[Rfam]
transfer-messenger RNA: a 403-nucleotide RNA from Capnocytophaga cynodegmi. It is annotated as a non-coding RNA gene. It scores 140 bits against the family's covariance model. Clan: tRNA clan. About the family: Bacterial tmRNA, also known as 10Sa RNA or SsrA, is named for its dual tRNA and mRNA-like properties. Its role is to liberate the mRNA from a stalled ribosome. To accomplish this part of the tmRNA is used as a reading frame that ends in a translation stop signal. The broken mRNA is replaced in the ribosome by the tmRNA and translation of the tmRNA leads to addition of a proteolysis tag to the incomplete protein enabling recognition by a protease. Recently a number of permuted tmRNA genes have been found encoded in two parts. tmRNAs have been identified in eubacteria and some chloroplasts but are absent from archaeal and eukaryote nuclear genomes.

RNA sequence: GGGGUCGAUCGGUUUUGACAGUAAGUCGAAUUGAAAUGUAAGCAUACCGAGCUAUGAAAUUAAUGCUCGUUAAUCUCUAUUUCAAACUUUUUAAAUGGCGAGAAUAACUACGCUCUUGCUGCCUAAUCUGAAGUUUAGUAAGAUUUCUGGCUAAGUCUCUACAAGGUAGGGAAGCGAGAUGUCUCUGAAAAGCCCUUGUUGACGGCGGUUCGUACAGAGGCACCAUAAAAGUCAACAUUGAAUCGGAUGAUGGUUUCCACUGAAGAUUCGGAUUUUAGGGAACUAAGCGUGUUGUGGGCGGUUUUUGGUCAGCAACCCGACGAAAAUCAAACAAAAACUAAGUAUGUAGAAAGCCUUUGAAUUGCUUAUUUGGACGAGAGUUCGAUUCUCUCCGACUCCACAG
Numbered sequence: 001g002g003g004g005u006c007g008a009u010c011g012g013u014u015u016u017g018a019c020a021g022u023a024a025g026u027c028g029a030a031u032u033g034a035a036a037u038g039u040a041a042g043c044a045u046a047c048c049g050a051g052c053u054a055u056g057a058a059a060u061u062a063a064u065g066c067u068c069g070u071u072a073a074u075c076u077c078u079a080u081u082u083c084a085a086a087c088u089u090u091u092u093a094a095a096u097g098g099c100g101a102g103a104a105u106a107a108c109u110a111c112g113c114u115c116u117u118g119c120u121g122c123c124u125a126a127u128c129u130g131a132a133g134u135u136u137a138g139u140a141a142g143a144u145u146u147c148u149g150g151c152u153a154a155g156u157c158u159c160u161a162c163a164a165g166g167u168a169g170g171g172a173a174g175c176g177a178g179a180u181g182u183c184u185c186u187g188a189a190a191a192g193c194c195c196u197u198g199u200u201g202a203c204g205g206c207g208g209u210u211c212g213u214a215c216a217g218a219g220g221c222a223c224c225a226u227a228a229a230a231g232u233c234a235a236c237a238u239u240g241a242a243u244c245g246g247a248u249g250a251u252g253g254u255u256u257c258c259a260c261u262g263a264a265g266a267u268u269c270g271g272a273u274u275u276u277a278g279g280g281a282a283c284u285a286a287g288c289g290u291g292u293u294g295u296g297g298g299c300g301g302u303u304u305u306u307g308g309u310c311a312g313c314a315a316c317c318c319g320a321c322g323a324a325a326a327u328c329a330a331a332c333a334a335a336a337a338c339u340a341a342g343u344a345u346g347u348a349g350a351a352a353g354c355c356u357u358u359g360a361a362u363u364g365c366u367u368a369u370u371u372g373g374a375c376g377a378g379a380g381u382u383c384g385a386u387u388c389u390c391u392c393c394g395a396c397u398c399c400a401c402a403g
Stems, first nucleotide, its partner, number of pairs: 001399007019372002021369006030362003034358003038354002043346005048069005055084006114179007122171003180222006186212004192206002198236006239270006252284006288319002291316005297310003301338007376392005